Small nucleolar RNA CD11: a 74-nucleotide RNA sequence from Drosophila rhopaloa.
[Rfam]
RNA sequence: UUCUACUUUAAUGAGGAUUGAUUUAGCAGAAGAGUUCUUGAAGACUAUAUUCAUCACCCAAAACUGAAAAUAUA
Numbered sequence: 001u002u003c004u005a006c007u008u009u010a011a012u013g014a015g016g017a018u019u020g021a022u023u024u025a026g027c028a029g030a031a032g033a034g035u036u037c038u039u040g041a042a043g044a045c046u047a048u049a050u051u052c053a054u055c056a057c058c059c060a061a062a063a064c065u066g067a068a069a070a071u072a073u074a
Stems, first nucleotide, its partner, number of pairs: 001070002029037003
The match comes from Rfam's covariance-model search (87 bits). The organism belongs to Sophophora, within Eukaryota.